[Rfam]
RNA sequence: GGCUGCAACAACCCCGUGGAUGGGGGCUUAUCUGAAGCGUUCGGCAUUCAUGCUGUUCGCCUCAGGGUGGUUAGUGCAUCCACUGCAGUC
Numbered sequence: 001g002g003c004u005g006c007a008a009c010a011a012c013c014c015c016g017u018g019g020a021u022g023g024g025g026g027c028u029u030a031u032c033u034g035a036a037g038c039g040u041u042c043g044g045c046a047u048u049c050a051u052g053c054u055g056u057u058c059g060c061c062u063c064a065g066g067g068u069g070g071u072u073a074g075u076g077c078a079u080c081c082a083c084u085g086c087a088g089u090c
Base pairs, nucleotide, nucleotide: 001090002089003088004087005086006085007084013076014074016083017082018081019080020079021078022077023075025072026071027070028069031066032065033064034063035062

The record is a 90-nucleotide sequence, which matches "nadA riboswitch" in Rfam. Rfam classes the family as a small RNA. The literature on the family includes a 2020 paper in Nucleic Acids Res by Chen et al., "Structural distinctions between NAD+ riboswitch domains 1 and 2 determine differential folding and ligand binding".